[Rfam]
A member of the RNA family "Pseudomonas sRNA CrcZ" from Pseudomonas taeanensis, 400 nucleotides long. The literature on the family includes a 2006 paper in Nucleic Acids Res by Livny et al., "Identification of 17 Pseudomonas aeruginosa sRNAs and prediction of sRNA-encoding genes in 10 diverse pathogens using the bioinformatic tool sRNAPredict2". The family has 19 seed sequences and 127 matches in Rfam 15.1. Rfam links the family to the GO term carbon catabolite repression of transcription. A search with the family's covariance model found it, with a score of 348 bits.
Nucleotides: 400
Stems, first nucleotide, its partner, number of pairs: 049084002052081004099221005113214003133184007156169005239256003243252001282382001285311004330375004347370001348367008
Number, partner (000 for none) and nucleotide at each position: 001000a002000c003000a004000a005000c006000a007000a008000c009000a010000a011000u012000a013000a014000c015000a016000a017000g018000c019000a020000a021000u022000g023000c024000c025000a026000c027000a028000g029000a030000c031000a032000a033000u034000a035000a036000a037000a038000a039000c040000a041000a042000g043000a044000c045000g046000u047000a048000u049084c050083g051000a052081c053080u054079c055078c056000a057000g058000c059000a060000c061000a062000a063000c064000a065000a066000a067000a068000a069000c070000a071000a072000c073000a074000g075000g076000g077000c078055g079054g080053a081052g082000g083050c084049g085000c086000a087000g088000c089000u090000a091000a092000c093000u094000g095000a096000u097000u098000c099221u100220u101219u102218u103217g104000g105000a106000g107000a108000g109000g110000a111000a112000u113214u114213g115212c116000c117000u118000u119000u120000g121000g122000g123000g124000c125000u126000u127000g128000c129000c130000c131000c132000a133184u134183a135182a136181c137180c138179a139178g140000g141000c142000u143000g144000a145000g146000a147000a148000c149000a150000a151000u152000a153000a154000a155000a156169c157168u158167g159166c160165u161000c162000g163000a164000a165160g166159g167158c168157a169156g170000u171000g172000c173000c174000u175000g176000u177000a178139c179138u180137g181136g182135u183134u184133a185000g186000g187000u188000c189000a190000c191000a192000a193000c194000g195000u196000g197000a198000c199000c200000a201000u202000g203000g204000u205000a206000g207000c208000g209000u210000c211000a212115g213114c214113a215000u216000c217103c218102a219101a220100a221099g222000c223000a224000a225000u226000c227000c228000g229000u230000u231000u232000g233000c234000u235000a236000c237000u238000a239256a240255c241254u242000c243252c244000c245000a246000g247000c248000u249000u250000g251000g252243g253000a254241g255240g256239u257000u258000u259000u260000c261000c262000a263000a264000g265000g266000g267000u268000c269000u270000c271000u272000g273000a274000c275000u276000c277000a278000a279000u280000g281000g282382a283000a284000c285311g286310g287309g288308u289000a290000a291000a292000c293000c294000a295000a296000c297000a298000a299000a300000a301000a302000c303000a304000a305000c306000a307000a308288g309287c310286c311285c312000g313000c314000c315000a316000u317000a318000a319000u320000a321000a322000u323000a324000a325000a326000a327000a328000c329000a330375a331374a332373g333372c334000a335000c336000g337000c338000a339000c340000c341000u342000a343000c344000u345000u346000g347370g348367g349366g350365g351364g352363g353362a354361g355360c356000u357000u358000a359000g360355g361354c362353u363352c364351c365350c366349c367348c368000a369000g370347u371000a372333g373332c374331u375330u376000c377000a378000a379000c380000c381000c382282u383000c384000c385000c386000a387000g388000c389000u390000u391000c392000g393000a394000c395000u396000g397000c398000c399000a400000u